[Rfam]
RNA: mir-208 microRNA precursor family
RNA sequence: ACUGACAGAGAAGCUUUUUGUUUGUGUUAUGUUUAUUUUCAAAUGUAAGACGAACAAAAAGUUUUUCUGUUAGUAG
Numbered sequence: 001a002c003u004g005a006c007a008g009a010g011a012a013g014c015u016u017u018u019u020g021u022u023u024g025u026g027u028u029a030u031g032u033u034u035a036u037u038u039u040c041a042a043a044u045g046u047a048a049g050a051c052g053a054a055c056a057a058a059a060a061g062u063u064u065u066u067c068u069g070u071u072a073g074u075a076g
Stems, first nucleotide, its partner, number of pairs: 003072004008067002011064008020055001023052002027048006